[Rfam]
RNA sequence: CGAGGUUUCUCCACUCCAUAGCAGGAACAUUCACGUCAUGGUCCCUGUCGGAUUCUAUGAAUCUGUGAAUUCUGCU
Numbered sequence: 001c002g003a004g005g006u007u008u009c010u011c012c013a014c015u016c017c018a019u020a021g022c023a024g025g026a027a028c029a030u031u032c033a034c035g036u037c038a039u040g041g042u043c044c045c046u047g048u049c050g051g052a053u054u055c056u057a058u059g060a061a062u063c064u065g066u067g068a069a070u071u072c073u074g075c076u
Stems, first nucleotide, its partner, number of pairs: 016041002020076007027039001049065007

This 76-nucleotide sequence from Mauremys mutica belongs to the Rfam family "Mammalian CPEB3 ribozyme". Rfam links the family to the GO term RNA nuclease activity. Rfam 15.1 lists 5,706 matches to the family in 197 species. A search with the family's covariance model found it, with a score of 40 bits. Lineage of the source: Eukaryota > Chordata > Craniata > Sauria > Mauremys.